[Rfam]
Rfam assigns this 81-nucleotide RNA from Homo sapiens to the family "mir-3160 microRNA precursor family".
The sequence is in the family's curated seed alignment.
RNA sequence: ACCUGCCCUGGGCUUUCUAGUCUCAGCUCUCCUCCAGCUCAGCUGGUCAGGAGAGCUGAGACUAGAAAGCCCAGGGCAGGU
Number, nucleotide and partner (000 for none) at each position: 001a081002c080003c079004u078005g077006c076007c075008c074009u073010g072011g071012g070013c069014u068015u067016u066017c065018u064019a063020g062021u061022c060023u059024c058025a057026g056027c055028u054029c053030u052031c051032c050033u049034c046035c045036a044037g043038c042039u000040c000041a000042g038043c037044u036045g035046g034047u000048c000049a033050g032051g031052a030053g029054a028055g027056c026057u025058g024059a023060g022061a021062c020063u019064a018065g017066a016067a015068a014069g013070c012071c011072c010073a009074g008075g007076g006077c005078a004079g003080g002081u001